[Rfam]
Source information: A member of the RNA family "DUF3800-VI RNA" from bacterium HR39, 53 nucleotides long. The family's consensus secondary structure is taken from published work. A search with the family's covariance model found it, with a score of 48 bits.
RNA sequence: CGGUCGGCAGGGCUGCCCGAAGCGGUCCGAUGGGGAGGGUCCCCAGCCGGCUG
Numbered sequence: 001c002g003g004u005c006g007g008c009a010g011g012g013c014u015g016c017c018c019g020a021a022g023c024g025g026u027c028c029g030a031u032g033g034g035g036a037g038g039g040u041c042c043c044c045a046g047c048c049g050g051c052u053g
Base pairs, nucleotide, nucleotide: 001053002052003051004050005049006048007047008046010028011027012026013025014024015023016022031045032044033043034042035041